[Rfam]
RNA sequence: CCCCUCCAGAUCCCUUUCCCAUCAGAUCUGAAUACCGAUCUCGUGGUCGAAAAAGGAGGAAAAACAAAAUUCAAACUGGUCUCGGCCUCUUCGCUGGCGCAGUCCUGCUCUGAGAGAG
Numbered sequence: 001c002c003c004c005u006c007c008a009g010a011u012c013c014c015u016u017u018c019c020c021a022u023c024a025g026a027u028c029u030g031a032a033u034a035c036c037g038a039u040c041u042c043g044u045g046g047u048c049g050a051a052a053a054a055g056g057a058g059g060a061a062a063a064a065c066a067a068a069a070u071u072c073a074a075a076c077u078g079g080u081c082u083c084g085g086c087c088u089c090u091u092c093g094c095u096g097g098c099g100c101a102g103u104c105c106u107g108c109u110c111u112g113a114g115a116g117a118g
Base pairs, nucleotide, nucleotide: 003059004058005057006056007055019046020045021044023043025040026039027038028037076107078105079104081102082101085098086097
A member of the RNA family "Small nucleolar RNA SNORA61" from Alca torda, 118 nucleotides long. ACA61 is a member of the H/ACA class of snoRNA that guide the sites of modification of uridines to pseudouridines. The match comes from Rfam's covariance-model search (78 bits).